Rfam assigns this 157-nucleotide sequence from Pseudanabaena sp. FACHB-2040 to the family "c-di-AMP riboswitch aptamer (ydaO/yuaA leader)". The source organism's lineage runs through Bacteria, Cyanophyceae, Pseudanabaenales, Pseudanabaenaceae and Pseudanabaena. It scores 60 bits against the family's covariance model.
[Rfam]
RNA sequence: UUGUUGACAAAGCUAAAGCAGAAGCGGGGGAACCAAGUUCCUUUUGGAGCAAGGGGCGUAUUUUCAAGGUCAGCCAGUCUGAAGAUUGACCUUUUGAGAAGGGGUAUCUCUCAACCCUAGCCCGACAGCUAACCUCGUAGGCAUUGAGAGAAGACUG
Numbered sequence: 001u002u003g004u005u006g007a008c009a010a011a012g013c014u015a016a017a018g019c020a021g022a023a024g025c026g027g028g029g030g031a032a033c034c035a036a037g038u039u040c041c042u043u044u045u046g047g048a049g050c051a052a053g054g055g056g057c058g059u060a061u062u063u064u065c066a067a068g069g070u071c072a073g074c075c076a077g078u079c080u081g082a083a084g085a086u087u088g089a090c091c092u093u094u095u096g097a098g099a100a101g102g103g104g105u106a107u108c109u110c111u112c113a114a115c116c117c118u119a120g121c122c123c124g125a126c127a128g129c130u131a132a133c134c135u136c137g138u139a140g141g142c143a144u145u146g147a148g149a150g151a152a153g154a155c156u157g
Stems, first nucleotide, its partner, number of pairs: 005143002008140001014021001024138006034053001054123003062099008102117004